[Rfam]
About this RNA: U11 spliceosomal RNA: a 134-nucleotide RNA sequence from Varroa destructor.

RNA sequence: UAAAAGGGCGUUUGGUUCAUGCCACACUCUUCAUAGUCACUUAGACGUGGGAGUGCAGAAUCGCUAUCAAGAGAUUCUGAGCGCAUAAUUUUUGAAUUGGGAGGCCGGUGAUGGCGAAAGCCUCUGGCGCCCUC
Numbered sequence: 001u002a003a004a005a006g007g008g009c010g011u012u013u014g015g016u017u018c019a020u021g022c023c024a025c026a027c028u029c030u031u032c033a034u035a036g037u038c039a040c041u042u043a044g045a046c047g048u049g050g051g052a053g054u055g056c057a058g059a060a061u062c063g064c065u066a067u068c069a070a071g072a073g074a075u076u077c078u079g080a081g082c083g084c085a086u087a088a089u090u091u092u093u094g095a096a097u098u099g100g101g102a103g104g105c106c107g108g109u110g111a112u113g114g115c116g117a118a119a120g121c122c123u124c125u126g127g128c129g130c131c132c133u134c
Stems, first nucleotide, its partner, number of pairs: 008084005013024004025055005031050004036046003056079007103131003107128001109126002113123002